[Rfam]
RNA sequence: CAAUUUGGUCAUCGGGUAAGUAUCCUAUCGGGCUUUUUAGGCUGAUGACAUUAAUUUAAGAGGAGUGCUGUUAAUGGCCCGUAUCGCUGGCAUUAACAUCCCUGAA
Numbered sequence: 001c002a003a004u005u006u007g008g009u010c011a012u013c014g015g016g017u018a019a020g021u022a023u024c025c026u027a028u029c030g031g032g033c034u035u036u037u038u039a040g041g042c043u044g045a046u047g048a049c050a051u052u053a054a055u056u057u058a059a060g061a062g063g064a065g066u067g068c069u070g071u072u073a074a075u076g077g078c079c080c081g082u083a084u085c086g087c088u089g090g091c092a093u094u095a096a097c098a099u100c101c102c103u104g105a106a
Stems, first nucleotide, its partner, number of pairs: 004053001008049006024090002029081004037105003